[Rfam]
The record is a 412-nucleotide RNA from Candidatus Nesciobacter abundans, which matches "Bacterial RNase P class A" in Rfam. Taxonomically the source falls in Candidatus Nesciobacter (Bacteria, Pseudomonadati, Pseudomonadota, Holosporaceae). By type it is a ribozyme.

RNA sequence: AGUGGAAAUCAAUCUGUCGCUGUGAUUUUUCUUGUUUACAUAUUUGUAUUUAUUGCUUGUAUUGUGAAUCUAAGAAAAUAGCAGAGGAAAGUCCGGGCUCCAUGAAGGAAGAGUACCUGUUAACAACAGGCGAGCGUAAGCUUAGGGAAAGUGCCACAGAAAAUUACCGCCAAUAAUUAGAGUUAUUUAAGUUUCUUGAAUGAUUUGUUUUUUGGUAAGGGUGAAAAGGUGCGGUAAGAGCGCACCUCUGAUUUUGGCAACAAGGCAGGAAAAGGUAAACCCUACUCGGAGCAAACUCGAACAGAAAAUACCUUCAUUUAAUUUUCGGGUUGAGUGCUUCAGUGCGUUAGUGAUAUCGCAUGUAGAUAAAUGACAGUUAAUACAGAAUCCGGCUUAUAGAUUUCCAAACUUU
Numbered sequence: 001a002g003u004g005g006a007a008a009u010c011a012a013u014c015u016g017u018c019g020c021u022g023u024g025a026u027u028u029u030u031c032u033u034g035u036u037u038a039c040a041u042a043u044u045u046g047u048a049u050u051u052a053u054u055g056c057u058u059g060u061a062u063u064g065u066g067a068a069u070c071u072a073a074g075a076a077a078a079u080a081g082c083a084g085a086g087g088a089a090a091g092u093c094c095g096g097g098c099u100c101c102a103u104g105a106a107g108g109a110a111g112a113g114u115a116c117c118u119g120u121u122a123a124c125a126a127c128a129g130g131c132g133a134g135c136g137u138a139a140g141c142u143u144a145g146g147g148a149a150a151g152u153g154c155c156a157c158a159g160a161a162a163a164u165u166a167c168c169g170c171c172a173a174u175a176a177u178u179a180g181a182g183u184u185a186u187u188u189a190a191g192u193u194u195c196u197u198g199a200a201u202g203a204u205u206u207g208u209u210u211u212u213u214g215g216u217a218a219g220g221g222u223g224a225a226a227a228g229g230u231g232c233g234g235u236a237a238g239a240g241c242g243c244a245c246c247u248c249u250g251a252u253u254u255u256g257g258c259a260a261c262a263a264g265g266c267a268g269g270a271a272a273a274g275g276u277a278a279a280c281c282c283u284a285c286u287c288g289g290a291g292c293a294a295a296c297u298c299g300a301a302c303a304g305a306a307a308a309u310a311c312c313u314u315c316a317u318u319u320a321a322u323u324u325u326c327g328g329g330u331u332g333a334g335u336g337c338u339u340c341a342g343u344g345c346g347u348u349a350g351u352g353a354u355a356u357c358g359c360a361u362g363u364a365g366a367u368a369a370a371u372g373a374c375a376g377u378u379a380a381u382a383c384a385g386a387a388u389c390c391g392g393c394u395u396a397u398a399g400a401u402u403u404c405c406a407a408a409c410u411u412u
Stems, first nucleotide, its partner, number of pairs: 003406008011397001012378001014376005020084004025079006089395003093392005098291004106319003111287005116130005131145001132143004146282002151280002153276003167220002169216005175210002228246006247270001248268003252265005295335004304326006342361005348355002